[Rfam]
RNA: M-box riboswitch aptamer (ykoK leader)
Organism: Thermoanaerobacteraceae bacterium SP2
RNA sequence: AUUUCUUCCUGUUAGGUGAGGCUCCUGUGCGAAUACAGGCCACUGCCCGGAAAUGUCGAGAGACACCAAUGGGUUAACAGACUUGGCCGGAUUAAGGUCAAAUCUAAUGUGGCUGGAAACAAGGUUUCCAAAGUCGCCCAGUGCUAAAACCGGUGACGAGGGGACAAAUU
Numbered sequence: 001a002u003u004u005c006u007u008c009c010u011g012u013u014a015g016g017u018g019a020g021g022c023u024c025c026u027g028u029g030c031g032a033a034u035a036c037a038g039g040c041c042a043c044u045g046c047c048c049g050g051a052a053a054u055g056u057c058g059a060g061a062g063a064c065a066c067c068a069a070u071g072g073g074u075u076a077a078c079a080g081a082c083u084u085g086g087c088c089g090g091a092u093u094a095a096g097g098u099c100a101a102a103u104c105u106a107a108u109g110u111g112g113c114u115g116g117a118a119a120c121a122a123g124g125u126u127u128c129c130a131a132a133g134u135c136g137c138c139c140a141g142u143g144c145u146a147a148a149a150c151c152g153g154u155g156a157c158g159a160g161g162g163g164a165c166a167a168a169u170u
Base pairs, nucleotide, nucleotide: 007164008163009162010161011157012156013095015151016150017149020145021144022143025141026140027139029137030136031135032134039113040112041111042110043109045074046073047072048071049070054065055064056063057062080104081103083101086098087097088096115129116128117127